Guanidine-I riboswitch aptamer: a 98-nucleotide RNA sequence from Hazenella coriacea.
Rfam 15.1 lists 1,509 matches to the family in 1,281 species.
This family represents a conserved RNA structure found upstream of the ykkC and yxkD genes in Bacillus subtilis and related genes in other bacteria.

RNA sequence: UAAAAAGUUUUCUAGGGUUCCGCAGUUAUUGACUGGACAGGUCCAAGAGAAAACACACAGUUCUACUGUGUACACGGAGGGAUAAAAGCCCGGGAGGA
Numbered sequence: 001u002a003a004a005a006a007g008u009u010u011u012c013u014a015g016g017g018u019u020c021c022g023c024a025g026u027u028a029u030u031g032a033c034u035g036g037a038c039a040g041g042u043c044c045a046a047g048a049g050a051a052a053a054c055a056c057a058c059a060g061u062u063c064u065a066c067u068g069u070g071u072a073c074a075c076g077g078a079g080g081g082a083u084a085a086a087a088g089c090c091c092g093g094g095a096g097g098a
Stems, first nucleotide, its partner, number of pairs: 007054006015044002020041002022038001023035005055071006073093001075096001079091003